Rfam assigns this 86-nucleotide RNA from Solanum tuberosum to the family "MIR8024 microRNA precursor family". Rfam links the family to the GO terms miRNA-mediated post-transcriptional gene silencing and RISC complex. Rfam 15.1 lists 661 matches to the family in 8 species.
[Rfam]
RNA sequence: UUGAAACAUUUGAAGAUUUUAACUUGCAGACUUAAUGAAUUUGAAGACUUCAUCUUGCAGACUUGAAGAAUUUGAUGAUCUCAACU
Numbered sequence: 001u002u003g004a005a006a007c008a009u010u011u012g013a014a015g016a017u018u019u020u021a022a023c024u025u026g027c028a029g030a031c032u033u034a035a036u037g038a039a040u041u042u043g044a045a046g047a048c049u050u051c052a053u054c055u056u057g058c059a060g061a062c063u064u065g066a067a068g069a070a071u072u073u074g075a076u077g078a079u080c081u082c083a084a085c086u
Base pairs, nucleotide, nucleotide: 001084002083003082004081006079010075011074012073013072014071017068018067019066020065021064025059026058027057028056033052035050037048